[Rfam]
RNA sequence: AUACGAAAAAGGCAAAAUCAUUGAAAAAUGAUGACGCAAAGCUAAAGGGGCUAAUGUGUAGACGUACACGAUGCCAGCCAGUUACCGAA
Numbered sequence: 001a002u003a004c005g006a007a008a009a010a011g012g013c014a015a016a017a018u019c020a021u022u023g024a025a026a027a028a029u030g031a032u033g034a035c036g037c038a039a040a041g042c043u044a045a046a047g048g049g050g051c052u053a054a055u056g057u058g059u060a061g062a063c064g065u066a067c068a069c070g071a072u073g074c075c076a077g078c079c080a081g082u083u084a085c086c087g088a089a
Base pairs, nucleotide, nucleotide: 012037013036017032018031019030020029021028022027040083041082042081043080047079048078049075050074051073056069057068058067059066
Overview: Shown here is an 89-nucleotide RNA from Bacillus sp. FJAT-49711, a member of the family "c-di-GMP-I riboswitch aptamer". The base pairs follow the family's consensus structure, which is taken from published work. Lineage of the source: Bacteria > Bacillati > Bacilli > Caryophanales > Bacillus. Gene Ontology term of the family: cyclic-di-GMP binding.